[Rfam]
RNA sequence: UAACCUACUUAGUGAUAAGUAGCUGAACCGUCAGAAGUCAGCAGAGGUCAUAGUACAAAUAAGGUCGCUCCUUAUUUGGAAGGAC
Dot-bracket structure: ((..(((((((....))))))).))............((....)).(((......((((((((.......))))))))....)))
RNA: Group II catalytic intron D1-D4-1
Organism: Bacillus smithii